[Rfam]
RNA: Plastid-psbN 5UTR RNA
RNA sequence: UGCGACCCGCAUAAAAGGAGUAGUCCCCAACCAGGGGCGACUUUCCCAUAUUCUGAAUUC
Dot-bracket structure: ................(((((.(((((......))))).)))))................